Rfam assigns this 84-nucleotide RNA sequence from Clupea harengus to the family "Small nucleolar RNA SNORD100". Gene Ontology terms of the family: nucleolus and RNA processing. It is annotated as a C/D-box small nucleolar RNA. Pairs were carried over by alignment from the consensus structure, which was predicted with RNAalifold. A reference for the family is Galardi et al. (2002), "Purified box C/D snoRNPs are able to reproduce site-specific 2'-O-methylation of target RNA in vitro", Mol Cell Biol.
[Rfam]
RNA sequence: AGUAUCGCUGAUGAUAAUUUGGCUCCCUCUACUGAAGUCCAUGAGGAUAAUCGCCACUGUUACCCAAUAUCUGUCUGAGAUGCU
Numbered sequence: 001a002g003u004a005u006c007g008c009u010g011a012u013g014a015u016a017a018u019u020u021g022g023c024u025c026c027c028u029c030u031a032c033u034g035a036a037g038u039c040c041a042u043g044a045g046g047a048u049a050a051u052c053g054c055c056a057c058u059g060u061u062a063c064c065c066a067a068u069a070u071c072u073g074u075c076u077g078a079g080a081u082g083c084u
Base pairs, nucleotide, nucleotide: 001084002083003082004081005080006079